[Rfam]
RNA sequence: UGAACUUAAGGCCAACCUCUUUUAGGGGGCGGAAAGCUACGGAUCUAAAGGUGUGUGCUCAAUUGUUCAUUAUUUAGAAACGUACUAGCGGCCAGUGAUUUCGGGACUAGAUAGCCGAGCUGCCGAG
Numbered sequence: 001u002g003a004a005c006u007u008a009a010g011g012c013c014a015a016c017c018u019c020u021u022u023u024a025g026g027g028g029g030c031g032g033a034a035a036g037c038u039a040c041g042g043a044u045c046u047a048a049a050g051g052u053g054u055g056u057g058c059u060c061a062a063u064u065g066u067u068c069a070u071u072a073u074u075u076a077g078a079a080a081c082g083u084a085c086u087a088g089c090g091g092c093c094a095g096u097g098a099u100u101u102c103g104g105g106a107c108u109a110g111a112u113a114g115c116c117g118a119g120c121u122g123c124c125g126a127g
Stems, first nucleotide, its partner, number of pairs: 012032002017027004035121004040117003043112005

Shown here is a 127-nucleotide RNA from Desulfosarcina ovata, a member of the family "c-di-GMP-I riboswitch aptamer". From the family's description: GEMM was predicted in a large-scale screen for bacterial structured RNA regulatory elements. A search with the family's covariance model found it, with a score of 39 bits.